[Rfam]
RNA sequence: CCUGAAAAAACGGUGAUGCCUCACUUCCAAGCACAUACCUGACUUGUAUGUGCAGACAGCUCUGGAGUCUGAGUCUUUUCAGU
Numbered sequence: 001c002c003u004g005a006a007a008a009a010a011c012g013g014u015g016a017u018g019c020c021u022c023a024c025u026u027c028c029a030a031g032c033a034c035a036u037a038c039c040u041g042a043c044u045u046g047u048a049u050g051u052g053c054a055g056a057c058a059g060c061u062c063u064g065g066a067g068u069c070u071g072a073g074u075c076u077u078u079u080c081a082g083u
Stems, first nucleotide, its partner, number of pairs: 002082005008076001010074002